[Rfam]
RNA: Purine riboswitch aptamer
Organism: Bacillus sp. FJAT-27916
RNA sequence: UUCAAAAAACGACAUUGCACUCAUAUAAUCGCAGGGAUAUGGCCUGCAAGUAUCUACCGGAUUACCAGUGCGCAUAGGGCGCCAAAAUAAUCUGACUAUGAGUGGGAACAGCUGGCAU
Dot-bracket structure: .................((((((((...(.(((((.......))))).)........(((((((.......................)))))))..))))))))..............
Numbered sequence: 001u002u003c004a005a006a007a008a009a010c011g012a013c014a015u016u017g018c019a020c021u022c023a024u025a026u027a028a029u030c031g032c033a034g035g036g037a038u039a040u041g042g043c044c045u046g047c048a049a050g051u052a053u054c055u056a057c058c059g060g061a062u063u064a065c066c067a068g069u070g071c072g073c074a075u076a077g078g079g080c081g082c083c084a085a086a087a088u089a090a091u092c093u094g095a096c097u098a099u100g101a102g103u104g105g106g107a108a109c110a111g112c113u114g115g116c117a118u
Stems, first nucleotide, its partner, number of pairs: 018104008029049001031047005058094007